Rfam assigns this 83-nucleotide RNA sequence from Photobacterium lipolyticum to the family "RpsF leader". It is annotated as a cis-regulatory leader. Conserved and widely distributed to many bacterial species RNA structure. It precedes operon containing rpsF, which encodes ribosomal protein S6. The motif also precedes operon containing rpsR, which encodes ribosomal protein S18. The RNA was shown to interact with S6:S18 protein dimer in vitro. The source organism's lineage runs through Bacteria, Pseudomonadota, Vibrionales, Vibrionaceae and Photobacterium. A search with the family's covariance model found it, with a score of 50 bits. The base pairs follow the family's consensus structure.

RNA sequence: UCGGUUCUUUUUUUAGUUCCUUGCUUCCUCUGGAUAACCGAGCCAACUCAGGAAGCUGAUUAAUCCGUAAGGAGCAACCAAUG
Numbered sequence: 001u002c003g004g005u006u007c008u009u010u011u012u013u014u015a016g017u018u019c020c021u022u023g024c025u026u027c028c029u030c031u032g033g034a035u036a037a038c039c040g041a042g043c044c045a046a047c048u049c050a051g052g053a054a055g056c057u058g059a060u061u062a063a064u065c066c067g068u069a070a071g072g073a074g075c076a077a078c079c080a081a082u083g
Base pairs, nucleotide, nucleotide: 016075017074018073019072020071021070022069023056024055025054026053027052028051031045032044033043